[Rfam]
RNA: Small nucleolar RNA SNORD125
Organism: Geotrypetes seraphini
RNA sequence: GAUAAGAACAGCCUCUCAUGAUGACUCUUCUGCUGAGCAAUUCUCCUGAUGAGAAAACCAUAACCUCUAAGAAGUUGACUGAAGAGGCUGCUGAAAA
Numbered sequence: 001g002a003u004a005a006g007a008a009c010a011g012c013c014u015c016u017c018a019u020g021a022u023g024a025c026u027c028u029u030c031u032g033c034u035g036a037g038c039a040a041u042u043c044u045c046c047u048g049a050u051g052a053g054a055a056a057a058c059c060a061u062a063a064c065c066u067c068u069a070a071g072a073a074g075u076u077g078a079c080u081g082a083a084g085a086g087g088c089u090g091c092u093g094a095a096a097a
Stems, first nucleotide, its partner, number of pairs: 007092001009090007
Dot-bracket structure: ......(.(((((((....................................................................))))))).).....